[Rfam]
RNA sequence: GAAUGAUAUGAUUAUUAGAUUAAUUCUCUUAUUAGUUUGAUUGGUGAUAUGAUGGCAAACUAUGUAUUAUCUCUAUUUGAUCAUUC
Numbered sequence: 001g002a003a004u005g006a007u008a009u010g011a012u013u014a015u016u017a018g019a020u021u022a023a024u025u026c027u028c029u030u031a032u033u034a035g036u037u038u039g040a041u042u043g044g045u046g047a048u049a050u051g052a053u054g055g056c057a058a059a060c061u062a063u064g065u066a067u068u069a070u071c072u073c074u075a076u077u078u079g080a081u082c083a084u085u086c
Stems, first nucleotide, its partner, number of pairs: 002085004042057002045054001

A member of the RNA family "Small nucleolar RNA Z102/R77" from Papaver nudicaule, 86 nucleotides long. It scores 63 bits against the family's covariance model. The base pairs follow the family's consensus structure, which was predicted with PFOLD. The organism belongs to Papaver, within Eukaryota. It is annotated as a C/D-box small nucleolar RNA. The family is grouped with related families in Rfam's "SNORD44 clan".